[Rfam]
RNA sequence: AAAAAAAAGCUCUGUUAGGAUUUGUCUAGCAGGUUUUCUGAUCUGCACCAGAAAGCCCUA
Number, nucleotide and partner (000 for none) at each position: 001a000002a000003a000004a000005a000006a000007a000008a000009g000010c000011u000012c000013u000014g000015u000016u000017a000018g000019g000020a000021u000022u000023u000024g000025u000026c000027u000028a000029g000030c000031a000032g057033g056034u055035u054036u053037u052038c051039u050040g049041a000042u047043c000044u000045g000046c000047a042048c000049c040050a039051g038052a037053a036054a035055g034056c033057c032058c000059u000060a000

A member of the RNA family "U7 small nuclear RNA" from Vicugna pacos, 60 nucleotides long. About the family: Animal histone pre-mRNAs are spliced by a different mechanism than nuclear pre-mRNAs and self-splicing introns.